[Rfam]
The family of this 141-nucleotide sequence is "IMES-2 RNA motif".
Pairs were carried over by alignment from the consensus structure, which is taken from published work.
Rfam classes the family as a non-coding RNA gene.
RNA sequence: AAACAACUUAAGAGGCAACUCUUAACUGGCCAGCCAGAGAAAGACCGAGAGGUUUAAGUCUGGAGGGCAGAAAGCCCUGUAGAGCAGCGCUAAACAUACAGGGUGGUCGGUUCGGCGGUAGCGCAUACAACGACGAGCCAU
Numbered sequence: 001a002a003a004c005a006a007c008u009u010a011a012g013a014g015g016c017a018a019c020u021c022u023u024a025a026c027u028g029g030c031c032a033g034c035c036a037g038a039g040a041a042a043g044a045c046c047g048a049g050a051g052g053u054u055u056a057a058g059u060c061u062g063g064a065g066g067g068c069a070g071a072a073a074g075c076c077c078u079g080u081a082g083a084g085c086a087g088c089g090c091u092a093a094a095c096a097u098a099c100a101g102g103g104u105g106g107u108c109g110g111u112u113c114g115g116c117g118g119u120a121g122c123g124c125a126u127a128c129a130a131c132g133a134c135g136a137g138c139c140a141u
Stems, first nucleotide, its partner, number of pairs: 008025007026070003030067002034063005043054004074104008087124005109139006116132002